[Rfam]
RNA: poplar-1 RNA
RNA sequence: UUAAAGCCGAGGGGCCUUGCGGAAACGUCAGGAGACGUCUACCGGACACAGUAGCAAGUGAGCCCGCCCUACAACCUUGUCUGAUGACGGUGUAGUGAAAUACUGGGUCAUGAGAAUGGCCAAUCAGACAGUAGCAAU
Numbered sequence: 001u002u003a004a005a006g007c008c009g010a011g012g013g014g015c016c017u018u019g020c021g022g023a024a025a026c027g028u029c030a031g032g033a034g035a036c037g038u039c040u041a042c043c044g045g046a047c048a049c050a051g052u053a054g055c056a057a058g059u060g061a062g063c064c065c066g067c068c069c070u071a072c073a074a075c076c077u078u079g080u081c082u083g084a085u086g087a088c089g090g091u092g093u094a095g096u097g098a099a100a101u102a103c104u105g106g107g108u109c110a111u112g113a114g115a116a117u118g119g120c121c122a123a124u125c126a127g128a129c130a131g132u133a134g135c136a137a138u
Base pairs, nucleotide, nucleotide: 012065013064014063015062018056019055020054031043032042033040034039067097070094071093072092073091081127082126083125084124101133102132103131104130106121107120108119109118110117
Dot-bracket structure: ...........((((..(((..........((((....)).))..........))).....)))).(..((((.......[[[[......))))..)...((((.(((((......)))))..]]]]..)))).....